[Rfam]
RNA sequence: UACGGGCGGGCCUGACUCUUUGCUCUGCCCGUAUCUUUUUUUCCACUCUGGGUGAGCAAAGUUUCAGGUGUGUCCGUGA
Numbered sequence: 001u002a003c004g005g006g007c008g009g010g011c012c013u014g015a016c017u018c019u020u021u022g023c024u025c026u027g028c029c030c031g032u033a034u035c036u037u038u039u040u041u042u043c044c045a046c047u048c049u050g051g052g053u054g055a056g057c058a059a060a061g062u063u064u065c066a067g068g069u070g071u072g073u074c075c076g077u078g079a
Base pairs, nucleotide, nucleotide: 002077003076004075005074006073007072010069011068012067013066014065015064018061019060020059021058023056024055025054028052029051030050
Dot-bracket structure: .((((((..((((((..((((.(((..(((...................))).))).))))..))))))..))))))..